This 152-nucleotide RNA sequence from Firmicutes bacterium CAG:646 belongs to the Rfam family "Clostridiales-1 RNA".
A search with the family's covariance model found it, with a score of 115 bits.
NCBI's taxonomy places the organism under Bacteria, Bacillati, Bacillota.

[Rfam]
Nucleotides: 152
Stems, first nucleotide, its partner, number of pairs: 001152006010062004016056002019053008028044001029042005067110007076101004083094004113144007124134004
Number, partner (000 for none) and nucleotide at each position: 001152g002151u003150g004149a005148g006147c007000a008000a009000g010062g011061c012060u013059u014000c015000a016056a017055a018000a019053g020052u021051u022050c023049c024048a025047u026046u027000u028044u029042u030041c031040a032039u033038g034000u035000u036000u037000a038033c039032a040031u041030g042029a043000a044028a045000a046026a047025a048024u049023g050022g051021a052020a053019c054000c055017u056016u057000g058000g059013a060012a061011g062010c063000c064000g065000c066000u067110a068109a069108a070107a071106c072105a073104u074000g075000a076101g077100g078099a079098u080000g081000c082000a083094g084093c085092c086091c087000g088000g089000u090000u091086g092085g093084g094083c095000g096000a097000a098079a099078u100077c101076c102000g103000a104073a105072u106071g107070u108069u109068u110067u111000u112000a113144g114143g115142a116141u117140u118139g119138c120000g121000a122000a123000a124134g125133u126132a127131c128000g129000a130000a131127g132126u133125a134124c135000g136000g137000a138119g139118c140117a141116a142115u143114c144113c145000g146000u147006g148005c149004u150003c151002a152001c